The family of this 306-nucleotide sequence from Lupinus albus is "Plant signal recognition particle RNA". By type it is a non-coding RNA gene. A search with the family's covariance model found it, with a score of 237 bits. The organism belongs to Lupinus, within Eukaryota. Its family is annotated with signal recognition particle, endoplasmic reticulum targeting and SRP-dependent cotranslational protein targeting to membrane, signal sequence recognition in the Gene Ontology.
[Rfam]
RNA sequence: GCCGAGUUGAUUAACAUUAACUUGUGACCCAAGUGGGGGCAUUAAUGUGAUGGAACUGUUGCAUGGCUCUUAGGUUGGACUGUUGAGUGCAAUGUGGUUGGCUUGCCCACUACAAGUUGAGAGUUGUUUCGUGUGAUUUGAGCGAAGGCACAGGUCUCAUGGAUCCUAAACAAGAGGGCACAGCGUGAGGCUGGCUUCACAGAGCAGCGACAACCUCUGGCUCUCAACAGUGUAGGGAUGACAGGCUGUAGCACCACCAGUUCAUUAUGACCUGGUGAGCCUGGUUCUGCUAGAACCAUCACUUUU
Numbered sequence: 001g002c003c004g005a006g007u008u009g010a011u012u013a014a015c016a017u018u019a020a021c022u023u024g025u026g027a028c029c030c031a032a033g034u035g036g037g038g039g040c041a042u043u044a045a046u047g048u049g050a051u052g053g054a055a056c057u058g059u060u061g062c063a064u065g066g067c068u069c070u071u072a073g074g075u076u077g078g079a080c081u082g083u084u085g086a087g088u089g090c091a092a093u094g095u096g097g098u099u100g101g102c103u104u105g106c107c108c109a110c111u112a113c114a115a116g117u118u119g120a121g122a123g124u125u126g127u128u129u130c131g132u133g134u135g136a137u138u139u140g141a142g143c144g145a146a147g148g149c150a151c152a153g154g155u156c157u158c159a160u161g162g163a164u165c166c167u168a169a170a171c172a173a174g175a176g177g178g179c180a181c182a183g184c185g186u187g188a189g190g191c192u193g194g195c196u197u198c199a200c201a202g203a204g205c206a207g208c209g210a211c212a213a214c215c216u217c218u219g220g221c222u223c224u225c226a227a228c229a230g231u232g233u234a235g236g237g238a239u240g241a242c243a244g245g246c247u248g249u250a251g252c253a254c255c256a257c258c259a260g261u262u263c264a265u266u267a268u269g270a271c272c273u274g275g276u277g278a279g280c281c282u283g284g285u286u287c288u289g290c291u292a293g294a295a296c297c298a299u300c301a302c303u304u305u306u
Stems, first nucleotide, its partner, number of pairs: 001040003004023008028037003044305002047302007056293002058290002061285002065281002068277001070275007077263006084256002087254003099248007107237002110235005116228009126165001128163006135156006142149002173218005184209003191202003